Shown here is a 374-nucleotide RNA from Thiocapsa imhoffii, a member of the family "Bacterial RNase P class A". Gene Ontology terms of the family: ribonuclease P activity, dimeric ribonuclease P complex and tRNA processing. Rfam classes the family as a ribozyme. It scores 330 bits against the family's covariance model. Lineage of the source: Bacteria > Pseudomonadati > Pseudomonadota > Chromatiaceae > Thiocapsa. About the family: Ribonuclease P (RNase P) is a ubiquitous endoribonuclease, found in archaea, bacteria and eukarya as well as chloroplasts and mitochondria.

[Rfam]
Nucleotides: 374
Base pairs, nucleotide, nucleotide: 001370002369003368004367005366006365007364008363009362010361011359012339013338014337015336016335017334018333020043022041023040024039025038026037027036028035048357049356050355052354053353054352055351056350057226058225059224060223064275065274066273067272069222070221071220072219073218074088075087076086077085078084089103090101091100092099093098104217105216109215110214111211112210113209126157127156128153129152130151131150132149134147136145137144138143165183166182167181168180169179170178184206185204186203187202188201189200191198192197230296231295232294233293241286242285243284244283245282266280267279268278269277270276303322304321305320306319307318308317309316310315
Number, partner (000 for none) and nucleotide at each position: 001370g002369g003368a004367g005366u006365u007364g008363g009362c010361c011359g012339g013338a014337c015336a016335g017334u018333c019000g020043c021000g022041c023040u024039c025038a026037c027036c028035c029000g030000c031000a032000u033000g034000c035028g036027g037026g038025u039024g040023g041022g042000g043020g044000a045000g046000g047000a048357a049356a050355g051000u052354c053353c054352g055351g056350g057226c058225u059224c060223c061000a062000c063000a064275g065274g066273g067272c068000a069222g070221g071220g072219u073218g074088c075087c076086a077085g078084g079000u080000a081000a082000c083000g084078c085077c086076u087075g088074g089103g090101g091100g092099g093098c094000g095000c096000g097000a098093g099092u100091c101090c102000a103089c104217g105216g106000a107000a108000a109215g110214u111211g112210c113209c114000a115000c116000a117000g118000a119000a120000a121000a122000g123000a124000u125000a126157c127156c128153g129152c130151c131150u132149c133000a134147c135000u136145c137144c138143c139000c140000u141000c142000g143138g144137g145136g146000c147134g148000c149132g150131a151130g152129g153128u154000a155000a156127g157126g158000g159000u160000g161000a162000a163000a164000u165183g166182g167181u168180g169179c170178g171000g172000u173000a174000a175000g176000a177000g178170c179169g180168c181167a182166c183165c184206g185204c186203g187202c188201u189200g190000a191198c192197g193000g194000c195000a196000a197192c198191g199000c200189c201188a202187g203186u204185g205000g206184c207000a208000g209113g210112g211111u212000a213000a214110a215109c216105c217104c218073c219072a220071c221070c222069c223060g224059g225058a226057g227000c228000a229000a230296g231295a232294c233293c234000a235000a236000a237000u238000a239000g240000a241286g242285g243284a244283a245282c246000g247000c248000g249000c250000a251000g252000a253000g254000c255000u256000g257000g258000c259000u260000c261000u262000g263000c264000g265000g266280c267279g268278c269277g270276c271000g272067g273066c274065c275064c276270g277269c278268g279267c280266g281000u282245g283244u284243u285242c286241c287000c288000g289000g290000g291000u292000c293233g294232g295231u296230c297000g298000c299000u300000u301000g302000a303322g304321g305320u306319a307318u308317c309316c310315g311000g312000c313000g314000a315310c316309g317308g318307a319306u320305a321304u322303c323000c324000u325000a326000g327000a328000u329000g330000a331000a332000u333018g334017a335016c336015u337014g338013u339012c340000c341000a342000u343000g344000a345000c346000a347000g348000a349000a350056c351055c352054c353053g354052g355050c356049u357048u358000a359011c360000a361010g362009g363008c364007c365006g366005a367004c368003u369002c370001c371000c372000a373000c374000c